[Rfam]
FMN riboswitch aptamer (RFN element): a 148-nucleotide RNA sequence from Desulfoplanes formicivorans. It scores 114 bits against the family's covariance model. The family's consensus secondary structure is taken from published work. The organism belongs to Desulfoplanes, within Bacteria.
RNA sequence: ACUUAUUCUCAGGGCGGGGUGCAAUUCCCCACCGGCGGUAUCCCGGUUUUUCCGGGGAGCCCGCGAGCGCUUCCUGACGGCAGGAAGGUCAGCAGACCCGGUGAGAGGCCGGGGCCGACGGUGACAGUCCGGAUGAAAGAGGAUGAGA
Numbered sequence: 001a002c003u004u005a006u007u008c009u010c011a012g013g014g015c016g017g018g019g020u021g022c023a024a025u026u027c028c029c030c031a032c033c034g035g036c037g038g039u040a041u042c043c044c045g046g047u048u049u050u051u052c053c054g055g056g057g058a059g060c061c062c063g064c065g066a067g068c069g070c071u072u073c074c075u076g077a078c079g080g081c082a083g084g085a086a087g088g089u090c091a092g093c094a095g096a097c098c099c100g101g102u103g104a105g106a107g108g109c110c111g112g113g114g115c116c117g118a119c120g121g122u123g124a125c126a127g128u129c130c131g132g133a134u135g136a137a138a139g140a141g142g143a144u145g146a147g148a
Base pairs, nucleotide, nucleotide: 003146004145005144006143007142008141009140010139017029018028019027031128032127033117034116035064036063037062038061059115060114067093068092097113098112099111100110101109119131120130121129